Shown here is a 230-nucleotide RNA sequence from Hymenochirus boettgeri, a member of the family "Small nucleolar RNA SNORA53". From the family's description: The snoRNA ACA53 belongs to the H/ACA family of pseudouridylation guide snoRNAs. The source organism's lineage runs through Eukaryota, Opisthokonta, Vertebrata, Gnathostomata and Hymenochirus. It scores 144 bits against the family's covariance model. The family's consensus secondary structure was predicted with RNAalifold.
[Rfam]
RNA sequence: AACAUGCUCCCUUAGAUCCACCUUUUAUAGAUGUCUGUUUCUGCUGGUUUCUGCUAUUUUUUAGGACUUUACCAGCUAAAAGACAUUUAGCAACUUUUCGGUUGUACAGUUAAAGGUGCUUGAGUCAUUGGCAUGUGAGACUAGUACACCUGCAUAUAAACCUUAUUAUUGUGAUGGCCGUGGUUGCAUACUUUAUCCCACCAUCAGGAUUUGGUGUAUGUGCAGACAUU
Numbered sequence: 001a002a003c004a005u006g007c008u009c010c011c012u013u014a015g016a017u018c019c020a021c022c023u024u025u026u027a028u029a030g031a032u033g034u035c036u037g038u039u040u041c042u043g044c045u046g047g048u049u050u051c052u053g054c055u056a057u058u059u060u061u062u063a064g065g066a067c068u069u070u071a072c073c074a075g076c077u078a079a080a081a082g083a084c085a086u087u088u089a090g091c092a093a094c095u096u097u098u099c100g101g102u103u104g105u106a107c108a109g110u111u112a113a114a115g116g117u118g119c120u121u122g123a124g125u126c127a128u129u130g131g132c133a134u135g136u137g138a139g140a141c142u143a144g145u146a147c148a149c150c151u152g153c154a155u156a157u158a159a160a161c162c163u164u165a166u167u168a169u170u171g172u173g174a175u176g177g178c179c180g181u182g183g184u185u186g187c188a189u190a191c192u193u194u195a196u197c198c199c200a201c202c203a204u205c206a207g208g209a210u211u212u213g214g215u216g217u218a219u220g221u222g223c224a225g226a227c228a229u230u
Stems, first nucleotide, its partner, number of pairs: 002136007011124005019118005025113003028089006038081003043076005053067001055066001057064002090105006150225005157218001160215003170208001172206006181200003